[Rfam]
RNA: SucA RNA motif
Organism: Comamonadaceae bacterium G21597-S1
RNA sequence: UCGCAUCCGCCAUCCGGUUCAGCCGUGCCGCGGAAGGUUAGUCAAUCGAUGAGACCGACAAAUGUUUCCUCAAGGGAAACGGAGUUAAGCG
Numbered sequence: 001u002c003g004c005a006u007c008c009g010c011c012a013u014c015c016g017g018u019u020c021a022g023c024c025g026u027g028c029c030g031c032g033g034a035a036g037g038u039u040a041g042u043c044a045a046u047c048g049a050u051g052a053g054a055c056c057g058a059c060a061a062a063u064g065u066u067u068c069c070u071c072a073a074g075g076g077a078a079a080c081g082g083a084g085u086u087a088a089g090c091g
Stems, first nucleotide, its partner, number of pairs: 002091003006034005015025004036056004057086003064080007